The family of this 74-nucleotide RNA sequence from Xylophilus sp. Leaf220 is "SAH (S-adenosyl-L-homocysteine) riboswitch aptamer". The match comes from Rfam's covariance-model search (62 bits).
RNA sequence: CUUUCCGAGGAGCGUUGCAGCGCCGCCCAGGCGUGAGGCUCGGAAUCAUCCAUCCGCAACGACGCUCGCCCACG
Numbered sequence: 001c002u003u004u005c006c007g008a009g010g011a012g013c014g015u016u017g018c019a020g021c022g023c024c025g026c027c028c029a030g031g032c033g034u035g036a037g038g039c040u041c042g043g044a045a046u047c048a049u050c051c052a053u054c055c056g057c058a059a060c061g062a063c064g065c066u067c068g069c070c071c072a073c074g
Stems, first nucleotide, its partner, number of pairs: 003045006021033004